The record is a 331-nucleotide RNA sequence from Roseospirillum parvum, which matches "Alphaproteobacteria transfer-messenger RNA" in Rfam. NCBI's taxonomy places the organism under Bacteria, Alphaproteobacteria, Rhodospirillales, Rhodospirillaceae, Roseospirillum. It scores 240 bits against the family's covariance model. It is annotated as a non-coding RNA gene. Rfam describes the family as follows. Bacterial tmRNA, also known as 10Sa RNA or SsrA, is named for its dual tRNA and mRNA-like properties. The family's consensus secondary structure is taken from published work.
[Rfam]
RNA sequence: CCCUUUGCGCCGGACCGGGAAGGCUCCUAUAUUGUUGGGGUCGGCUUGCCGACUAUGGCGCUAAACCCCUUGCGGAAUAAGCGUAGUGGACCCGGGGGCAGUGCCCGGCGCCUCCACCAAUUCCCGCCCCGGCCCGGCAGUGCCGGCGGGGCGGGCUCAUGGGGGCGAAACAGGAUCGACACGCGUGGUAAAGGCUUGGGCUGUUCCCGGCAUGGUUCCGCCGUUAUCGGGCCGUUACUACAAGUGCCAACGACAAUGACAUGGCGCUCGCUGCCGCCUAAACAUCGGUAAGCGCGGUUCGGAGGGCACCGGGCAACAGAAGCCCUCCACU
Number, nucleotide and partner (000 for none) at each position: 001c000002c000003c000004u000005u000006u000007g000008c000009g000010c000011c000012g000013g000014a000015c000016c000017g000018g000019g000020a000021a000022g000023g000024c000025u000026c000027c000028u000029a000030u000031a000032u000033u000034g000035u000036u000037g000038g000039g000040g053041u052042c051043g050044g049045c000046u000047u000048g000049c044050c043051g042052a041053c040054u000055a000056u000057g207058g206059c000060g204061c203062u000063a000064a000065a000066c000067c200068c199069c198070u000071u000072g195073c194074g000075g000076a000077a000078u000079a000080a000081g000082c185083g184084u183085a000086g182087u181088g180089g000090a000091c000092c108093c107094g106095g105096g104097g000098g000099c000100a000101g000102u000103g000104c096105c095106c094107g093108g092109c167110g166111c165112c164113u163114c162115c161116a000117c000118c000119a000120a000121u000122u000123c000124c000125c000126g000127c000128c000129c000130c000131g000132g000133c000134c000135c000136g000137g000138c000139a000140g000141u000142g000143c000144c000145g000146g000147c000148g000149g000150g000151g000152c000153g000154g000155g000156c000157u000158c000159a000160u000161g115162g114163g113164g112165g111166c110167g109168a000169a000170a000171c000172a000173g000174g000175a000176u000177c000178g000179a000180c088181a087182c086183g084184c083185g082186u000187g000188g000189u000190a000191a000192a000193g000194g073195c072196u000197u000198g069199g068200g067201c000202u000203g061204u060205u000206c058207c057208c223209g222210g221211c220212a000213u234214g233215g232216u000217u231218c230219c229220g211221c210222c209223g208224u000225u000226a000227u000228c000229g219230g218231g217232c215233c214234g213235u000236u000237a000238c000239u000240a000241c000242a000243a000244g000245u000246g000247c000248c000249a000250a000251c000252g000253a000254c000255a000256a000257u000258g000259a000260c000261a000262u000263g000264g000265c000266g000267c000268u000269c000270g000271c000272u000273g000274c000275c000276g000277c000278c000279u000280a000281a000282a000283c000284a000285u000286c000287g000288g000289u000290a000291a000292g000293c000294g000295c311296g310297g309298u308299u000300c000301g328302g327303a326304g325305g324306g323307c000308a298309c297310c296311g295312g000313g000314c000315a000316a000317c000318a000319g000320a000321a000322g000323c306324c305325c304326u303327c302328c301329a000330c000331u000